Rfam assigns this 47-nucleotide sequence from Methylophaga thalassica to the family "Guanidine-II riboswitch aptamer (mini-ykkC)". Pairs were carried over by alignment from the consensus structure, which is taken from published work. NCBI's taxonomy places the organism under Bacteria, Pseudomonadota, Gammaproteobacteria, Methylophaga, Methylophaga thalassica. Simpler in structure and has fewer highly conserved nucleotide positions than the ykkC-yxkD leader. Despite this each of its two stem-loop structures directly bind free guanidine. Rfam 15.1 lists 1,589 matches to the family in 1,229 species.
[Rfam]
RNA sequence: GUUUCGGGACGACCUGAAACAGCGCUUUAUUAGCUGGGACGACCCAG
Numbered sequence: 001g002u003u004u005c006g007g008g009a010c011g012a013c014c015u016g017a018a019a020c021a022g023c024g025c026u027u028u029a030u031u032a033g034c035u036g037g038g039a040c041g042a043c044c045c046a047g
Stems, first nucleotide, its partner, number of pairs: 001020008034047005